[Rfam]
Nucleotides: 126
Stems, first nucleotide, its partner, number of pairs: 012111003018032005033107006043052002053092003061070003073086003
Number, partner (000 for none) and nucleotide at each position: 001000u002000a003000a004000u005000a006000g007000c008000a009000u010000u011000a012111g013110c014109c015000u016000a017000a018032g019031u020030u021029u022028u023000a024000u025000a026000a027000a028022a029021a030020a031019a032018c033107a034106c035105g036104g037103g038102g039000g040000a041000a042000c043052c044051a045000a046000u047000a048000u049000u050000u051044u052043g053092g054091g055090g056000u057000g058000a059000a060000u061070c062069g063068u064000c065000u066000u067000c068063a069062c070061g071000u072000a073086g074085g075084c076000u077000u078000a079000c080000c081000u082000u083000u084075g085074c086073c087000g088000a089000a090055c091054c092053c093000g094000u095000c096000a097000g098000c099000u100000a101000a102038c103037c104036c105035c106034g107033u108000a109014g110013g111012u112000a113000a114000a115000a116000g117000g118000a119000g120000a121000g122000g123000a124000u125000a126000u
c-di-AMP riboswitch aptamer (ydaO/yuaA leader): a 126-nucleotide RNA from Clostridium liquoris. Lineage of the source: Bacteria > Bacillati > Clostridia > Eubacteriales > Clostridium. It scores 94 bits against the family's covariance model.